[Rfam]
RNA sequence: CCUGGUCCUCGGUAGUGACCUUCGGGUAGUUGUAGCCCCGCGGGUCUCGAUCGAAGACCGGU
Numbered sequence: 001c002c003u004g005g006u007c008c009u010c011g012g013u014a015g016u017g018a019c020c021u022u023c024g025g026g027u028a029g030u031u032g033u034a035g036c037c038c039c040g041c042g043g044g045u046c047u048c049g050a051u052c053g054a055a056g057a058c059c060g061g062u
Stems, first nucleotide, its partner, number of pairs: 002061006009054005017046005023040004
This 62-nucleotide RNA from Arachnia propionica belongs to the Rfam family "Actino-pnp RNA". It scores 57 bits against the family's covariance model. The source organism's lineage runs through Bacteria, Bacillati, Actinomycetota, Propionibacteriales and Arachnia. It is annotated as a cis-regulatory element.